[Rfam]
RNA sequence: UCCAGCUCAGGGCAAACUUAUUGAAAAAUAAGGACGCAAAGGCACAGAUCUAAGGCAAAUCUGCUAAGGUGGCUGGUCUUCCUGG
Dot-bracket structure: ...........((...((((((....))))))...))..((((.((((((....(((....)))...)))..)))))))......
Numbered sequence: 001u002c003c004a005g006c007u008c009a010g011g012g013c014a015a016a017c018u019u020a021u022u023g024a025a026a027a028a029u030a031a032g033g034a035c036g037c038a039a040a041g042g043c044a045c046a047g048a049u050c051u052a053a054g055g056c057a058a059a060u061c062u063g064c065u066a067a068g069g070u071g072g073c074u075g076g077u078c079u080u081c082c083u084g085g
Stems, first nucleotide, its partner, number of pairs: 012037002017032006040079004045075003048070003055064003